RNA sequence: UUUGUAAUAACCAUUUGAAUCAAGUAAUGCAGUGAUUCAAAUGGUUCUCCCCA
Numbered sequence: 001u002u003u004g005u006a007a008u009a010a011c012c013a014u015u016u017g018a019a020u021c022a023a024g025u026a027a028u029g030c031a032g033u034g035a036u037u038c039a040a041a042u043g044g045u046u047c048u049c050c051c052c053a
Base pairs, nucleotide, nucleotide: 004051007048009046010045011044012043013042014041015040016039017038018037019036020035021034022033

The record is a 53-nucleotide RNA sequence from Vitis rotundifolia, which matches "Plastid-ccsA-ndhD-2 3UTR RNA" in Rfam. By type it is a cis-regulatory element. Rfam 15.1 lists 875 matches to the family in 517 species. On this family, see Stern and Gruissem, Cell 1987: "Control of plastid gene expression: 3' inverted repeats act as mRNA processing and stabilizing elements, but do not terminate transcription". From the family's description: Plastid ccsA-ndhD-2 is a non-coding RNA (ncRNA) recognised in plastids. NCBI's taxonomy places the organism under Eukaryota, Streptophytina, Vitales, Viteae, Vitis.